[Rfam]
Shown here is a 138-nucleotide RNA sequence from Salmonella enterica, a member of the family "Salmonella enterica sRNA STnc460". It is annotated as a small RNA.
RNA sequence: GUGCUGAGUGGGUAUUUAUAUUCAAUACAGAUGAUAGACAAAGUAAAGAACCUUGCAUAUUUAUGACGAUGAGGCCGGAGUCUUCUUGUCAGAUAAAACGUUAGAUGCCAUUAAUGAAUUGAGAACUAUUCUAUUAUU
Numbered sequence: 001g002u003g004c005u006g007a008g009u010g011g012g013u014a015u016u017u018a019u020a021u022u023c024a025a026u027a028c029a030g031a032u033g034a035u036a037g038a039c040a041a042a043g044u045a046a047a048g049a050a051c052c053u054u055g056c057a058u059a060u061u062u063a064u065g066a067c068g069a070u071g072a073g074g075c076c077g078g079a080g081u082c083u084u085c086u087u088g089u090c091a092g093a094u095a096a097a098a099c100g101u102u103a104g105a106u107g108c109c110a111u112u113a114a115u116g117a118a119u120u121g122a123g124a125a126c127u128a129u130u131c132u133a134u135u136a137u138u
Stems, first nucleotide, its partner, number of pairs: 002040002004037003008032002012028005018022001041054003055101002058098001060097005065090005071084005103127002106124001109121001110119003
NCBI's taxonomy places the organism under Bacteria, Pseudomonadati, Enterobacteriaceae, Salmonella enterica, Salmonella enterica subsp. arizonae.